[Rfam]
RNA sequence: UGGUUCUUCCUAGCUCAACUCUCGUGGUUCCAUACGAGUUACCCCGAUAACUCCUUCGAUGCUCCGUCGUUGAAACCGACAUGUGGAGCACGCCAUGGGAAAAGUCCCCGGGUCUACGGCAAGAAAUUGUCAGGACGUGAUUCCGUCUCUGAAUUUUCAAUCAGAAGCGCCCUUUAACCGGUGCUUAGGUUGAGGUUCUAAAUAAAUCCAUCUUGGACCAGACAUAAUCAAAGAUAUGUUGAGGGAAACCAUCGUAUCGGAAGUUGGUGGCGGGAGGGUCCGCUCUUCCUCCACCUUCUCUCCCCUACUGUUCUUACACAAUGGGGCUUACUCAGAAAGAACC
Numbered sequence: 001u002g003g004u005u006c007u008u009c010c011u012a013g014c015u016c017a018a019c020u021c022u023c024g025u026g027g028u029u030c031c032a033u034a035c036g037a038g039u040u041a042c043c044c045c046g047a048u049a050a051c052u053c054c055u056u057c058g059a060u061g062c063u064c065c066g067u068c069g070u071u072g073a074a075a076c077c078g079a080c081a082u083g084u085g086g087a088g089c090a091c092g093c094c095a096u097g098g099g100a101a102a103a104g105u106c107c108c109c110g111g112g113u114c115u116a117c118g119g120c121a122a123g124a125a126a127u128u129g130u131c132a133g134g135a136c137g138u139g140a141u142u143c144c145g146u147c148u149c150u151g152a153a154u155u156u157u158c159a160a161u162c163a164g165a166a167g168c169g170c171c172c173u174u175u176a177a178c179c180g181g182u183g184c185u186u187a188g189g190u191u192g193a194g195g196u197u198c199u200a201a202a203u204a205a206a207u208c209c210a211u212c213u214u215g216g217a218c219c220a221g222a223c224a225u226a227a228u229c230a231a232a233g234a235u236a237u238g239u240u241g242a243g244g245g246a247a248a249c250c251a252u253c254g255u256a257u258c259g260g261a262a263g264u265u266g267g268u269g270g271c272g273g274g275a276g277g278g279u280c281c282g283c284u285c286u287u288c289c290u291c292c293a294c295c296u297u298c299u300c301u302c303c304c305c306u307a308c309u310g311u312u313c314u315u316a317c318a319c320a321a322u323g324g325g326g327c328u329u330a331c332u333c334a335g336a337a338a339g340a341a342c343c
Stems, first nucleotide, its partner, number of pairs: 002343007010335002014243006022098007036091001038089003042085001102329003106326004118131004133148005151198003157193006166185006245313003
Notes:
This 343-nucleotide RNA sequence from Anopheles stephensi belongs to the Rfam family "RNase MRP". NCBI's taxonomy places the organism under Eukaryota, Eumetazoa, Pancrustacea, Eumetabola, Neocellia. Clan: RNaseP clan. From the family's description: RNase MRP is an enzymatically active ribonucleoprotein with two distinct roles in eukaryotes. In mitochondria it plays a direct role in the initiation of mitochondrial DNA replication. In the nucleus it is involved in precursor rRNA processing, where it cleaves the internal transcribed spacer 1 between 18S and 5.8S rRNAs.